[Rfam]
RNA: Small nucleolar RNA SNORA79
Organism: Vespula vulgaris
RNA sequence: AGACAACUGUUCCUCUGACAAGAUCUUUAUAUCAUGUUAGAUUUCAGAAUGUCUUAGAAUAAAUAUGGAUUGCUUCACCCAGAAUUGUGCAUUAUUAUAACACUGUCUGGUUUUUGCGGGUUCAUACAAAA
Numbered sequence: 001a002g003a004c005a006a007c008u009g010u011u012c013c014u015c016u017g018a019c020a021a022g023a024u025c026u027u028u029a030u031a032u033c034a035u036g037u038u039a040g041a042u043u044u045c046a047g048a049a050u051g052u053c054u055u056a057g058a059a060u061a062a063a064u065a066u067g068g069a070u071u072g073c074u075u076c077a078c079c080c081a082g083a084a085u086u087g088u089g090c091a092u093u094a095u096u097a098u099a100a101c102a103c104u105g106u107c108u109g110g111u112u113u114u115u116g117c118g119g120g121u122u123c124a125u126a127c128a129a130a131a
Stems, first nucleotide, its partner, number of pairs: 001054005008047001014041005020035001022033002067123005079110005084104001086102003